RNA sequence: AUACGAAAAGAGCAAAACCCUGGGAGAACAGGGGACGCAAAGGGAGGGUCUUUAGCUUACAUGGAUGUAAAAAAGACAACCUUACUUCCAAAAAAGAUAGCCUUACUGCCGAA
Numbered sequence: 001a002u003a004c005g006a007a008a009a010g011a012g013c014a015a016a017a018c019c020c021u022g023g024g025a026g027a028a029c030a031g032g033g034g035a036c037g038c039a040a041a042g043g044g045a046g047g048g049u050c051u052u053u054a055g056c057u058u059a060c061a062u063g064g065a066u067g068u069a070a071a072a073a074a075g076a077c078a079a080c081c082u083u084a085c086u087u088c089c090a091a092a093a094a095a096g097a098u099a100g101c102c103u104u105a106c107u108g109c110c111g112a113a
Stems, first nucleotide, its partner, number of pairs: 012038002018033005041107002043104001045103003048098006
Shown here is a 113-nucleotide RNA sequence from Candidatus Brocadia sinica, a member of the family "c-di-GMP-I riboswitch aptamer". It scores 39 bits against the family's covariance model. The organism belongs to Candidatus Brocadia sinica, within Bacteria.